RNA sequence: UUAGCGAUACAGAACUGGCGGAUGAGUGGAGCACCACGUGGACUGUAUCGUAUUCAGCCGACCGCCUGGGCAGUUUUU
Numbered sequence: 001u002u003a004g005c006g007a008u009a010c011a012g013a014a015c016u017g018g019c020g021g022a023u024g025a026g027u028g029g030a031g032c033a034c035c036a037c038g039u040g041g042a043c044u045g046u047a048u049c050g051u052a053u054u055c056a057g058c059c060g061a062c063c064g065c066c067u068g069g070g071c072a073g074u075u076u077u078u
Base pairs, nucleotide, nucleotide: 004051005050006049007048008047009046010045011044012043015040017066018065019064020063021062026037027036028035029034055073057071058070059069
RNA: ZMP/ZTP riboswitch aptamer (pfl RNA motif)
Organism: Dendrosporobacter quercicolus